[Rfam]
RNA sequence: UUUAUAUUUCUGGGGGCCAAAGAAGGAGCAUUCACGUCACGGUCUCUGUCAGGCUUCUGCCUGCGAAUCCUACC
Numbered sequence: 001u002u003u004a005u006a007u008u009u010c011u012g013g014g015g016g017c018c019a020a021a022g023a024a025g026g027a028g029c030a031u032u033c034a035c036g037u038c039a040c041g042g043u044c045u046c047u048g049u050c051a052g053g054c055u056u057c058u059g060c061c062u063g064c065g066a067a068u069c070c071u072a073c074c
Base pairs, nucleotide, nucleotide: 013046014045015044016043017042018041022073024071025070026069027068028040050063051062052061053060054059
RNA: Mammalian CPEB3 ribozyme
Organism: Eptatretus burgeri